[Rfam]
RNA sequence: GGGCUGGCUUUAGCUCAGCGGUUACUUCGGCGACACCUCCUAGGAUUACACCAACCUCUCUGGGUUGUUCGAGACCCGCGGGCGCUCUCCAGUCCUUUU
Numbered sequence: 001g002g003g004c005u006g007g008c009u010u011u012a013g014c015u016c017a018g019c020g021g022u023u024a025c026u027u028c029g030g031c032g033a034c035a036c037c038u039c040c041u042a043g044g045a046u047u048a049c050a051c052c053a054a055c056c057u058c059u060c061u062g063g064g065u066u067g068u069u070c071g072a073g074a075c076c077c078g079c080g081g082g083c084g085c086u087c088u089c090c091a092g093u094c095c096u097u098u099u
Stems, first nucleotide, its partner, number of pairs: 002094006013083004018079004026073005
About this RNA: The family of this 99-nucleotide RNA sequence from Macaca mulatta is "Vault RNA". By type it is a non-coding RNA gene. The base pairs follow the family's consensus structure, which is taken from published work. On this family, see Stadler et al., Mol Biol Evol 2009: "Evolution of Vault RNAs". This family of RNAs are found as part of the enigmatic vault ribonucleoprotein complex. Lineage of the source: Eukaryota > Eumetazoa > Mammalia > Boreoeutheria > Macaca. Rfam's curators put it in the seed alignment.